[Rfam]
RNA sequence: UAGGGGAAUGAAACAUCACUUUCACCCGCAGGAGUAAUCGCAGCAGAUUUCCCCGGCGGUAUGAGGCCUUCUGACAGCCAUGAGGUAUCCCAGCUCAAUG
Numbered sequence: 001u002a003g004g005g006g007a008a009u010g011a012a013a014c015a016u017c018a019c020u021u022u023c024a025c026c027c028g029c030a031g032g033a034g035u036a037a038u039c040g041c042a043g044c045a046g047a048u049u050u051c052c053c054c055g056g057c058g059g060u061a062u063g064a065g066g067c068c069u070u071c072u073g074a075c076a077g078c079c080a081u082g083a084g085g086u087a088u089c090c091c092a093g094c095u096c097a098a099u100g
Stems, first nucleotide, its partner, number of pairs: 010089002013086002016083002040060002043057002046054001
RNA: Pyrrolysine insertion sequence 1